[Rfam]
RNA: skipping-rope RNA
RNA sequence: GUUUUUUAAGGAUAGAAAGGCUUCUAUCACGCUACAAUCAAGUAGUUGCCAGAGAUGUAGGGUACGCCGUCCUACUAUUUAAC
Number, nucleotide and partner (000 for none) at each position: 001g083002u082003u081004u000005u000006u000007u077008a076009a000010g000011g028012a027013u026014a025015g024016a000017a000018a000019g068020g067021c066022u000023u000024c015025u014026a013027u012028c011029a000030c052031g046032c045033u044034a043035c000036a000037a000038u000039c000040a000041a000042g000043u034044a033045g032046u031047u000048g000049c000050c000051a000052g030053a000054g000055a000056u000057g075058u074059a073060g072061g071062g000063u000064a000065c000066g021067c020068c019069g000070u000071c061072c060073u059074a058075c057076u008077a007078u000079u000080u000081a003082a002083c001